[Rfam]
This 133-nucleotide RNA sequence from Tupaia belangeri belongs to the Rfam family "Small nucleolar RNA SNORA84". Rfam's curators put it in the seed alignment.
RNA sequence: GCCCUGUGGUUGCUGGGUGCUGUUGUGCAAGUACAGCUCUCCGGUGGAUACUAUGGGCAACAGCAAUCCUGUGAUUUAUGCAUGGGGGCUGUUUCUUCUCAGCAGCCGCCAUAGCCCGGUCACUGGUACAUGG
Number, nucleotide and partner (000 for none) at each position: 001g058002c057003c056004c055005u000006g000007u050008g049009g000010u047011u046012g045013c044014u043015g042016g041017g040018u000019g037020c036021u035022g034023u033024u000025g000026u000027g000028c000029a000030a000031g000032u000033a023034c022035a021036g020037c019038u000039c000040u017041c016042c015043g014044g013045u012046g011047g010048a000049u008050a007051c000052u000053a000054u000055g004056g003057g002058c001059a000060a000061c000062a000063g000064c000065a000066a000067u000068c000069c125070u000071g123072u122073g121074a120075u119076u118077u000078a000079u000080g115081c114082a112083u111084g110085g109086g000087g107088g106089c105090u104091g103092u102093u101094u000095c000096u000097u000098c000099u000100c000101a093102g092103c091104a090105g089106c088107c087108g000109c085110c084111a083112u082113a000114g081115c080116c000117c000118g076119g075120u074121c073122a072123c071124u000125g069126g000127u000128a000129c000130a000131u000132g000133g000
Its family is annotated with RNA processing and nucleolus in the Gene Ontology.
On this family, see Marker et al., Curr Biol 2002: "Experimental RNomics: identification of 140 candidates for small non-messenger RNAs in the plant Arabidopsis thaliana".